Streptomyces RNA 1601: a 212-nucleotide RNA from Streptomyces netropsis.
The source organism's lineage runs through Bacteria, Actinomycetes, Kitasatosporales, Streptomycetaceae and Streptomyces.
From the family's description: Identified by deep sequencing of transcriptome at the end of exponential growth phase. Appears longer on northern blot than sequencing transcript. Streptomyces specific.
The literature on the family includes a 2011 paper in RNA Biol by Vockenhuber et al., "Deep sequencing-based identification of small non-coding RNAs in Streptomyces coelicolor".
The match comes from Rfam's covariance-model search (138 bits).
The family's RNA type in Rfam is small RNA.
[Rfam]
RNA sequence: CUCGACCGGCUGGACACUUGCGUGCCCGGCCCACAAGUGGAGGCUCCGAUCUCCCACCUCGCACGACCCCCGGGUCGGCAGGUCUCCGGUCAGGCGACGCCCAUCGUUCCGUACGGACGAUGUGGAAUUGCCCGAUGCGCCUCGCGGUUGAUCGCGGCGGUGCUCCCGGUGUUUGAGGAGCCCCUGCCUGUGUCCCGUCCGGGGCGUUUUUU
Numbered sequence: 001c002u003c004g005a006c007c008g009g010c011u012g013g014a015c016a017c018u019u020g021c022g023u024g025c026c027c028g029g030c031c032c033a034c035a036a037g038u039g040g041a042g043g044c045u046c047c048g049a050u051c052u053c054c055c056a057c058c059u060c061g062c063a064c065g066a067c068c069c070c071c072g073g074g075u076c077g078g079c080a081g082g083u084c085u086c087c088g089g090u091c092a093g094g095c096g097a098c099g100c101c102c103a104u105c106g107u108u109c110c111g112u113a114c115g116g117a118c119g120a121u122g123u124g125g126a127a128u129u130g131c132c133c134g135a136u137g138c139g140c141c142u143c144g145c146g147g148u149u150g151a152u153c154g155c156g157g158c159g160g161u162g163c164u165c166c167c168g169g170u171g172u173u174u175g176a177g178g179a180g181c182c183c184c185u186g187c188c189u190g191u192g193u194c195c196c197g198u199c200c201g202g203g204g205c206g207u208u209u210u211u212u
Base pairs, nucleotide, nucleotide: 004091005090006089007088008087009086012027013026028084029083030082031081035059037057038056039055040054041052042051061079062078064077065076066075067074068073093132094131095130096129097128102122103121104120105119106118107117108116139205140204141203142202143201144200145197146196147195153192154191155190156188157187158186159184160183162181163180164179165178166177